A member of the RNA family "Purine riboswitch aptamer" from Baia soyae, 101 nucleotides long. It scores 76 bits against the family's covariance model. Taxonomically the source falls in Baia (Bacteria, Bacillota, Bacilli, Thermoactinomycetaceae). The family's consensus secondary structure is taken from published work.

RNA sequence: AUAGAAUAAAGUACUUUUCUUCAUAUAAGUCUGGGAAUGGGCCUGGAUGUCUCUACAAGGAAACCGUAAAUUUCCUUUCUAUGGGGAAAGUCUACUUUUAG
Numbered sequence: 001a002u003a004g005a006a007u008a009a010a011g012u013a014c015u016u017u018u019c020u021u022c023a024u025a026u027a028a029g030u031c032u033g034g035g036a037a038u039g040g041g042c043c044u045g046g047a048u049g050u051c052u053c054u055a056c057a058a059g060g061a062a063a064c065c066g067u068a069a070a071u072u073u074c075c076u077u078u079c080u081a082u083g084g085g086g087a088a089a090g091u092c093u094a095c096u097u098u099u100a101g
Stems, first nucleotide, its partner, number of pairs: 018087008029048007057077007